[Rfam]
Overview
The family of this 116-nucleotide sequence from Treponema parvum is "TD-1 RNA". The organism belongs to Treponema, within Bacteria. It scores 79 bits against the family's covariance model. On this family, see Weinberg et al., Nucleic Acids Res 2007: "Identification of 22 candidate structured RNAs in bacteria using the CMfinder comparative genomics pipeline". Rfam classes the family as a cis-regulatory element. Its Rfam clan is "TD (Treponema denticola) motifs".
RNA sequence: GUUAAACGACGAGUUUCGGGUAAAACCGAAACGUCGCGAAUUAACGUAUGCGCUAUAGAGCGCAUGAAUUCAACAGUCUCCAAAAUUGAUAUUUUGUUCGACUGUUGAAUUUUAAG
Numbered sequence: 001g002u003u004a005a006a007c008g009a010c011g012a013g014u015u016u017c018g019g020g021u022a023a024a025a026c027c028g029a030a031a032c033g034u035c036g037c038g039a040a041u042u043a044a045c046g047u048a049u050g051c052g053c054u055a056u057a058g059a060g061c062g063c064a065u066g067a068a069u070u071c072a073a074c075a076g077u078c079u080c081c082a083a084a085a086u087u088g089a090u091a092u093u094u095u096g097u098u099c100g101a102c103u104g105u106u107g108a109a110u111u112u113u114a115a116g
Base pairs, nucleotide, nucleotide: 011035012034013032014031015030016029017028018027019026050063051062052061053060054059068110069109070108071107072106073105074104075103076102077101078100081096082095083094084093085092086091